This 129-nucleotide RNA from Thermoanaerobacteraceae bacterium SP2 belongs to the Rfam family "Glycine riboswitch aptamer". Its family is annotated with glycine biosynthetic process in the Gene Ontology. It scores 61 bits against the family's covariance model.
RNA sequence: AUGAAAAAGGCGAGAGAGACCCACGGCCGAAUUGAGAUGCGACAACGCUUGUAUUGGAGUGUGGGCGCCGAAGGGGUAAACCCGGGAUUUUUAGGUGAUACUCUCAGGCAAAAGGACCGCCUUUGGACC
Numbered sequence: 001a002u003g004a005a006a007a008a009g010g011c012g013a014g015a016g017a018g019a020c021c022c023a024c025g026g027c028c029g030a031a032u033u034g035a036g037a038u039g040c041g042a043c044a045a046c047g048c049u050u051g052u053a054u055u056g057g058a059g060u061g062u063g064g065g066c067g068c069c070g071a072a073g074g075g076g077u078a079a080a081c082c083c084g085g086g087a088u089u090u091u092u093a094g095g096u097g098a099u100a101c102u103c104u105c106a107g108g109c110a111a112a113a114g115g116a117c118c119g120c121c122u123u124u125g126g127a128c129c
Stems, first nucleotide, its partner, number of pairs: 006124007020065006067109003070105002074103003080096002